[Rfam]
Source information:
The family of this 102-nucleotide RNA sequence from Brassica napus is "mir-395 microRNA precursor family". A reference for the family is Jones-Rhoades and Bartel (2004), "Computational Identification of Plant MicroRNAs and Their Targets, Including a Stress-Induced miRNA", Mol Cell. NCBI's taxonomy places the organism under Eukaryota, Tracheophyta, malvids, Brassicaceae, Brassica. Pairs were carried over by alignment from the consensus structure, which was predicted with PFOLD. Rfam links the family to the GO terms miRNA-mediated post-transcriptional gene silencing and RISC complex.
RNA sequence: AUGUUUCCUAGAGUUCCUCUGAGCACUUCAUUGGAUAUAACAUUUUUUCUAUCAAAAUUAAAUGUAUCCCACUGAAGUGUUUGGGGGAACUCCUGGACUCAU
Numbered sequence: 001a002u003g004u005u006u007c008c009u010a011g012a013g014u015u016c017c018u019c020u021g022a023g024c025a026c027u028u029c030a031u032u033g034g035a036u037a038u039a040a041c042a043u044u045u046u047u048u049c050u051a052u053c054a055a056a057a058u059u060a061a062a063u064g065u066a067u068c069c070c071a072c073u074g075a076a077g078u079g080u081u082u083g084g085g086g087g088a089a090c091u092c093c094u095g096g097a098c099u100c101a102u
Stems, first nucleotide, its partner, number of pairs: 006097003011092010022082002024079007032071003